Pseudomonas sRNA CrcZ: a 388-nucleotide RNA sequence from Pseudomonas graminis. The match comes from Rfam's covariance-model search (300 bits). Taxonomically the source falls in Pseudomonas (Bacteria, Gammaproteobacteria, Pseudomonadales, Pseudomonadaceae). By type it is a small RNA. The base pairs follow the family's consensus structure, which was predicted with WAR. For this family Rfam cites "Identification of 17 Pseudomonas aeruginosa sRNAs and prediction of sRNA-encoding genes in 10 diverse pathogens using the bioinformatic tool sRNAPredict2" (Livny et al., Nucleic Acids Res, 2006).

RNA sequence: ACGACAAAAAUAACAAAUGCAAUAACCCAAUAAAAACAAGACGUAUCGGCUCUGACACAACAAGAACAACACGGACAGAGACGCAGCUAACUGAUUUUUUUGGAGUGGAUCGCUCUACUUGAGGCCUUGGCCUCACGACCGUACUGAGAACAAUAAAACUGCGUUCAGGCAGCUACCAGACGAGUCGGAUCGAAAGAUCGAAGCGUAUCAGCGCUCAAAAAAAUACGUUUGCUCUUGGCCCCCUAUGGGGUCGCUCAAAAAAAGCAAAAAAGGCUGGCUGCCAAAAAUAACAACAGGCCACCUAAUAAUAACAAGAGCAUGCAGUUGAAAUUGAAGGGGAGCCCAGGCUCCCCUUCGUGCUAUCCGGCAUUCGUAAACCUCCCCUUCU
Numbered sequence: 001a002c003g004a005c006a007a008a009a010a011u012a013a014c015a016a017a018u019g020c021a022a023u024a025a026c027c028c029a030a031u032a033a034a035a036a037c038a039a040g041a042c043g044u045a046u047c048g049g050c051u052c053u054g055a056c057a058c059a060a061c062a063a064g065a066a067c068a069a070c071a072c073g074g075a076c077a078g079a080g081a082c083g084c085a086g087c088u089a090a091c092u093g094a095u096u097u098u099u100u101u102g103g104a105g106u107g108g109a110u111c112g113c114u115c116u117a118c119u120u121g122a123g124g125c126c127u128u129g130g131c132c133u134c135a136c137g138a139c140c141g142u143a144c145u146g147a148g149a150a151c152a153a154u155a156a157a158a159c160u161g162c163g164u165u166c167a168g169g170c171a172g173c174u175a176c177c178a179g180a181c182g183a184g185u186c187g188g189a190u191c192g193a194a195a196g197a198u199c200g201a202a203g204c205g206u207a208u209c210a211g212c213g214c215u216c217a218a219a220a221a222a223a224u225a226c227g228u229u230u231g232c233u234c235u236u237g238g239c240c241c242c243c244u245a246u247g248g249g250g251u252c253g254c255u256c257a258a259a260a261a262a263a264g265c266a267a268a269a270a271a272g273g274c275u276g277g278c279u280g281c282c283a284a285a286a287a288u289a290a291c292a293a294c295a296g297g298c299c300a301c302c303u304a305a306u307a308a309u310a311a312c313a314a315g316a317g318c319a320u321g322c323a324g325u326u327g328a329a330a331u332u333g334a335a336g337g338g339g340a341g342c343c344c345a346g347g348c349u350c351c352c353c354u355u356c357g358u359g360c361u362a363u364c365c366g367g368c369a370u371u372c373g374u375a376a377a378c379c380u381c382c383c384c385u386u387c388u
Stems, first nucleotide, its partner, number of pairs: 047083002050080004098220005111213003136187004140182003159172004238251005271370001273368004277298002317360004334355009